[Rfam]
RNA: Actinobacteria sRNA Ms_IGR-5
RNA sequence: ACACAGAAGGGAGGUGGUCAGAGAAAUGGUUAUUUCUAGGACGCGUGAGGUGGCUGCCAGCUAGGCGCUACCGCUGCAGAACGGAUUCUCGUUAGCGCGAGCGCCUAGCGAAUCCAAGGCAGUCACCCGGCCCCCGAGUCCCUGAUCUGUCCGAUCAGGAUCGCGUGAGUUGCAUCCGCGAUACCAGGCUCGGGGGUCGUUCCUU
Numbered sequence: 001a002c003a004c005a006g007a008a009g010g011g012a013g014g015u016g017g018u019c020a021g022a023g024a025a026a027u028g029g030u031u032a033u034u035u036c037u038a039g040g041a042c043g044c045g046u047g048a049g050g051u052g053g054c055u056g057c058c059a060g061c062u063a064g065g066c067g068c069u070a071c072c073g074c075u076g077c078a079g080a081a082c083g084g085a086u087u088c089u090c091g092u093u094a095g096c097g098c099g100a101g102c103g104c105c106u107a108g109c110g111a112a113u114c115c116a117a118g119g120c121a122g123u124c125a126c127c128c129g130g131c132c133c134c135c136g137a138g139u140c141c142c143u144g145a146u147c148u149g150u151c152c153g154a155u156c157a158g159g160a161u162c163g164c165g166u167g168a169g170u171u172g173c174a175u176c177c178g179c180g181a182u183a184c185c186a187g188g189c190u191c192g193g194g195g196g197u198c199g200u201u202c203c204u205u
Stems, first nucleotide, its partner, number of pairs: 013058006060109006067102003072097003128199013141159006